[Rfam]
RNA sequence: CCUGCCGAAGUUUCCCUCAGGAUAGUAGUAACGUCUUCAGUUUUAUAAGGUAGAGCGAAUAAUUAGAGGCCUAGGGGUUGAAACAACCUUCACCUAUUCUCAAACUUCAAAUAUGUAAGAAGUCCUUGUUACUUAAUUGAACGUGGACAUUUGAAUGUAUCGUUACUAGUGGGCCAUUUUUGGUAAGCAGAACUGGCGAUGCGGGAUGAACCAAACACAGGGUUAAGGUACCAGAAUGCACGCUCAUCAGACACUACAAAAGGUAUUAGUUCAUCUAGACAGCAGGACGGUGGCCAUAGAAGUCAGAAUCCGCUAAGGAGUAUAUAACAACUCACCUACCAAAUGAACUAGCCCUGAAAAUGGAUAGCGCUCAAGCGUACUACCCAUACCCCACCGCCAGGGCAGACUUUAUGCCCUGGCGAGUAGGCAGGCGUGGAGGCUUGUGACGAAGCCUUGGGGGUGACCCUGGGUUGAACAGCCUCUAGUGCAGAU
Numbered sequence: 001c002c003u004g005c006c007g008a009a010g011u012u013u014c015c016c017u018c019a020g021g022a023u024a025g026u027a028g029u030a031a032c033g034u035c036u037u038c039a040g041u042u043u044u045a046u047a048a049g050g051u052a053g054a055g056c057g058a059a060u061a062a063u064u065a066g067a068g069g070c071c072u073a074g075g076g077g078u079u080g081a082a083a084c085a086a087c088c089u090u091c092a093c094c095u096a097u098u099c100u101c102a103a104a105c106u107u108c109a110a111a112u113a114u115g116u117a118a119g120a121a122g123u124c125c126u127u128g129u130u131a132c133u134u135a136a137u138u139g140a141a142c143g144u145g146g147a148c149a150u151u152u153g154a155a156u157g158u159a160u161c162g163u164u165a166c167u168a169g170u171g172g173g174c175c176a177u178u179u180u181u182g183g184u185a186a187g188c189a190g191a192a193c194u195g196g197c198g199a200u201g202c203g204g205g206a207u208g209a210a211c212c213a214a215a216c217a218c219a220g221g222g223u224u225a226a227g228g229u230a231c232c233a234g235a236a237u238g239c240a241c242g243c244u245c246a247u248c249a250g251a252c253a254c255u256a257c258a259a260a261a262g263g264u265a266u267u268a269g270u271u272c273a274u275c276u277a278g279a280c281a282g283c284a285g286g287a288c289g290g291u292g293g294c295c296a297u298a299g300a301a302g303u304c305a306g307a308a309u310c311c312g313c314u315a316a317g318g319a320g321u322a323u324a325u326a327a328c329a330a331c332u333c334a335c336c337u338a339c340c341a342a343a344u345g346a347a348c349u350a351g352c353c354c355u356g357a358a359a360a361u362g363g364a365u366a367g368c369g370c371u372c373a374a375g376c377g378u379a380c381u382a383c384c385c386a387u388a389c390c391c392c393a394c395c396g397c398c399a400g401g402g403c404a405g406a407c408u409u410u411a412u413g414c415c416c417u418g419g420c421g422a423g424u425a426g427g428c429a430g431g432c433g434u435g436g437a438g439g440c441u442u443g444u445g446a447c448g449a450a451g452c453c454u455u456g457g458g459g460g461u462g463a464c465c466c467u468g469g470g471u472u473g474a475a476c477a478g479c480c481u482c483u484a485g486u487g488c489a490g491a492u
Stems, first nucleotide, its partner, number of pairs: 001431006011024001013022003027167007041120007053108001054106002060102001062100001065097001067095003072092001074090004079085001122148004127143004173197004178192005203212002220391002223388001227384003236381001238380001241377003261355003266351009282339001284337003288312003294306001313317001318333001323330001395421009432487001434484008443476002451471002457466003